The family of this 110-nucleotide RNA from Actinomyces howellii is "Actinomyces-1 RNA". It scores 69 bits against the family's covariance model. Taxonomically the source falls in Actinomyces (Bacteria, Actinomycetes, Actinomycetales, Actinomycetaceae).
RNA sequence: CUCACCGUCGGACGGCGGCAGUCGCGAGGUACUGGGGAGUGCUGAUGACCGGCAGUCGUCGAGUGAGACCCCGCAGCCAAGGGAAUGCGGACUCACGCCCGGCGAAGGAG
Numbered sequence: 001c002u003c004a005c006c007g008u009c010g011g012a013c014g015g016c017g018g019c020a021g022u023c024g025c026g027a028g029g030u031a032c033u034g035g036g037g038a039g040u041g042c043u044g045a046u047g048a049c050c051g052g053c054a055g056u057c058g059u060c061g062a063g064u065g066a067g068a069c070c071c072c073g074c075a076g077c078c079a080a081g082g083g084a085a086u087g088c089g090g091a092c093u094c095a096c097g098c099c100c101g102g103c104g105a106a107g108g109a110g
Base pairs, nucleotide, nucleotide: 006104007103008102009101010100011099013061014060015059016058018056019055021053022052023051024050028043029042031040032039033038063096064095065094066093067092072089073088074087075086